RNA: Small nucleolar RNA R21
Nucleotides: 075
Stems, first nucleotide, its partner, number of pairs: 001075006
Number, partner (000 for none) and nucleotide at each position: 001075c002074a003073u004072c005071c006070c007000u008000a009000u010000g011000a012000g013000g014000a015000a016000c017000g018000c019000u020000a021000g022000c023000c024000a025000a026000a027000g028000u029000a030000a031000a032000a033000g034000u035000a036000g037000u038000g039000g040000a041000c042000u043000g044000a045000u046000c047000u048000c049000c050000a051000u052000u053000g054000a055000u056000g057000a058000a059000u060000u061000c062000a063000a064000u065000u066000c067000u068000g069000a070006g071005g072004g073003a074002u075001g